Record summary:
A member of the RNA family "int-alpA RNA" from Xenorhabdus japonica, 67 nucleotides long. Pairs were carried over by alignment from the consensus structure, which is taken from published work. The organism belongs to Xenorhabdus, within Bacteria. The family's RNA type in Rfam is small RNA. A search with the family's covariance model found it, with a score of 57 bits. Rfam 15.1 lists 577 matches to the family in 491 species.

[Rfam]
RNA sequence: AGCGAAACUAGCCCGACGGGGUGAAAAGCAAGAAGCCCUACUUGCCUGUUUCGCUAAACUCUUAGGG
Numbered sequence: 001a002g003c004g005a006a007a008c009u010a011g012c013c014c015g016a017c018g019g020g021g022u023g024a025a026a027a028g029c030a031a032g033a034a035g036c037c038c039u040a041c042u043u044g045c046c047u048g049u050u051u052c053g054c055u056a057a058a059c060u061c062u063u064a065g066g067g
Base pairs, nucleotide, nucleotide: 001055002054003053004052005051006050007049008048011022012021013020014019028045029044030043031042032041036067037066038065039064040063